[Rfam]
The family of this 129-nucleotide RNA sequence from Albula goreensis is "Small nucleolar RNA SNORA63".
RNA sequence: UGGCAGGUUAAGUUACAGAGCAGCUGAUCAGUGCUGCACUGUCGUUCCCCCUGCACACAAUAACCUGUUUCCCACUAUCCCUGUCUGUCUGCAUCUCAGCAACUGACAGGGACGCUUGGUCUCAGACAC
Numbered sequence: 001u002g003g004c005a006g007g008u009u010a011a012g013u014u015a016c017a018g019a020g021c022a023g024c025u026g027a028u029c030a031g032u033g034c035u036g037c038a039c040u041g042u043c044g045u046u047c048c049c050c051c052u053g054c055a056c057a058c059a060a061u062a063a064c065c066u067g068u069u070u071c072c073c074a075c076u077a078u079c080c081c082u083g084u085c086u087g088u089c090u091g092c093a094u095c096u097c098a099g100c101a102a103c104u105g106a107c108a109g110g111g112a113c114g115c116u117u118g119g120u121c122u123c124a125g126a127c128a129c
Base pairs, nucleotide, nucleotide: 003054004053005052006051007050015042016041017040018039020037021036022035023034024033080110081109082108083107085105087103088102
By type it is an H/ACA-box small nucleolar RNA. From the family's description: E3 belongs to the H/ACA class of snoRNAs and is involved in the processing of eukaryotic pre-rRNA and has regions of complementarity to 18S rRNA. E3 is encoded in introns in the gene for protein synthesis initiation factor 4AII. Rfam links the family to the GO terms RNA processing and nucleolus.